Cyanobacterial functional RNA 13: a 98-nucleotide sequence from Prochlorococcus marinus. It is annotated as a small RNA.
RNA sequence: GAGGCCAAACCUCGUCAGCACACUCUACGUUUGCUGCAAGACAUAGAUUGAUUCAAUAUAGUUGCGAGUCAAUUUAAUAACCCUUUCAGUAGUUGGAA
Numbered sequence: 001g002a003g004g005c006c007a008a009a010c011c012u013c014g015u016c017a018g019c020a021c022a023c024u025c026u027a028c029g030u031u032u033g034c035u036g037c038a039a040g041a042c043a044u045a046g047a048u049u050g051a052u053u054c055a056a057u058a059u060a061g062u063u064g065c066g067a068g069u070c071a072a073u074u075u076a077a078u079a080a081c082c083c084u085u086u087c088a089g090u091a092g093u094u095g096g097a098a
Stems, first nucleotide, its partner, number of pairs: 001013004016036005022030002044076008053067002081096002

It is one of the family's seed sequences.